[Rfam]
RNA sequence: CGUCAAGAGUCUAGGCGCCGUUUCGGCGAACGAAUUUCUUUUGCCUGUUAGAAGGUGAAGAACGAUG
Numbered sequence: 001c002g003u004c005a006a007g008a009g010u011c012u013a014g015g016c017g018c019c020g021u022u023u024c025g026g027c028g029a030a031c032g033a034a035u036u037u038c039u040u041u042u043g044c045c046u047g048u049u050a051g052a053a054g055g056u057g058a059a060g061a062a063c064g065a066u067g
Stems, first nucleotide, its partner, number of pairs: 009063002012059001016057004021053003025049002028046001031043004
RNA: S-element
Organism: Rhizobium tibeticum